This 149-nucleotide RNA sequence from Aminomonas paucivorans belongs to the Rfam family "FMN riboswitch aptamer (RFN element)". About the family: The RFN element is a highly conserved domain that is found frequently in the 5'-untranslated regions of prokaryotic mRNAs that encode for flavin mononucleotide (FMN) biosynthesis and transport proteins.
RNA sequence: UUCCGUUCUCGGGGCGGGGUGAAAGUCCCCACCGGCGGUAUCCCGGAGUUCUCCGGGGAGCCCGCGAGCGCCCUUCCGCCAGGAAGGGGCCAGCAGAUCUGGUGAGAGGCCAGGGCCGACGGUCACAGUCCGGAGGGUAGAGAGAGGAG
Numbered sequence: 001u002u003c004c005g006u007u008c009u010c011g012g013g014g015c016g017g018g019g020u021g022a023a024a025g026u027c028c029c030c031a032c033c034g035g036c037g038g039u040a041u042c043c044c045g046g047a048g049u050u051c052u053c054c055g056g057g058g059a060g061c062c063c064g065c066g067a068g069c070g071c072c073c074u075u076c077c078g079c080c081a082g083g084a085a086g087g088g089g090c091c092a093g094c095a096g097a098u099c100u101g102g103u104g105a106g107a108g109g110c111c112a113g114g115g116c117c118g119a120c121g122g123u124c125a126c127a128g129u130c131c132g133g134a135g136g137g138u139a140g141a142g143a144g145a146g147g148a149g
Stems, first nucleotide, its partner, number of pairs: 003147002006144005017029003031129002033118002035065004060116002068094002098114005120132003